[Rfam]
RNA sequence: UUAACUAAAAUUUGUAGGAAUUGGAACGUUUGCCUACGUUUGCCGCUAGGGACGCUGUUCUAACUGAAUAUAAAUUUGAGUUA
Number, nucleotide and partner (000 for none) at each position: 001u000002u000003a000004a000005c000006u000007a000008a077009a076010a075011u074012u073013u072014g071015u070016a069017g000018g000019a065020a000021u063022u062023g061024g060025a059026a058027c057028g056029u000030u000031u000032g000033c051034c050035u049036a000037c000038g046039u045040u000041u000042g000043c000044c000045g039046c038047u000048a000049g035050g034051g033052a000053c000054g000055c000056u028057g027058u026059u025060c024061u023062a022063a021064c000065u019066g000067a000068a000069u016070a015071u014072a013073a012074a011075u010076u009077u008078g000079a000080g000081u000082u000083a000

A member of the RNA family "mir-2807 microRNA precursor family" from Bombyx mori, 83 nucleotides long. For this family Rfam cites "MicroRNAs of Bombyx mori identified by Solexa sequencing" (Liu et al., BMC Genomics, 2010). Its family is annotated with miRNA-mediated post-transcriptional gene silencing and RISC complex in the Gene Ontology. A search with the family's covariance model found it, with a score of 73 bits. The organism belongs to Bombyx, within Eukaryota.